The family of this 118-nucleotide RNA sequence from Clostridium vincentii is "FMN riboswitch aptamer (RFN element)". The RFN element is a highly conserved domain that is found frequently in the 5'-untranslated regions of prokaryotic mRNAs that encode for flavin mononucleotide (FMN) biosynthesis and transport proteins.
[Rfam]
RNA sequence: AAAGAUCUUCAGGGCGGGGCGUAAAUCCCCACCGGCGGUAUAGCCCGCGAACUAAAUUUUUAGUUGAUUCGGUGUAAUUCCGAGGCCGACAGUAUAGUCUGGAUGAAAGAAGGUAACU
Numbered sequence: 001a002a003a004g005a006u007c008u009u010c011a012g013g014g015c016g017g018g019g020c021g022u023a024a025a026u027c028c029c030c031a032c033c034g035g036c037g038g039u040a041u042a043g044c045c046c047g048c049g050a051a052c053u054a055a056a057u058u059u060u061u062a063g064u065u066g067a068u069u070c071g072g073u074g075u076a077a078u079u080c081c082g083a084g085g086c087c088g089a090c091a092g093u094a095u096a097g098u099c100u101g102g103a104u105g106a107a108a109g110a111a112g113g114u115a116a117c118u
Base pairs, nucleotide, nucleotide: 005114006113007112008111009110010109017029018028019027031098032097033088034087035048036047037046038045043086044085051064052063053062068084069083070082071081072080090101091100092099